[Rfam]
RNA sequence: GUUUUAGUAUAGGUAUGUCCCAUGCAAUAUUUAGGAAAUACUUACAUUAAAA
Numbered sequence: 001g002u003u004u005u006a007g008u009a010u011a012g013g014u015a016u017g018u019c020c021c022a023u024g025c026a027a028u029a030u031u032u033a034g035g036a037a038a039u040a041c042u043u044a045c046a047u048u049a050a051a052a
Stems, first nucleotide, its partner, number of pairs: 006048003010044003014040003018036003022031001
Dot-bracket structure: .....(((.(((.(((.(((.(........)..))).))).))).)))....

The family of this 52-nucleotide RNA sequence from Lynx pardinus is "mir-1302 microRNA precursor family". The base pairs follow the family's consensus structure, which was predicted with WAR. Taxonomically the source falls in Lynx (Eukaryota, Vertebrata, Carnivora, Feliformia). Rfam links the family to the GO terms RISC complex and miRNA-mediated post-transcriptional gene silencing. A reference for the family is Morin et al. (2008), "Application of massively parallel sequencing to microRNA profiling and discovery in human embryonic stem cells", Genome Res.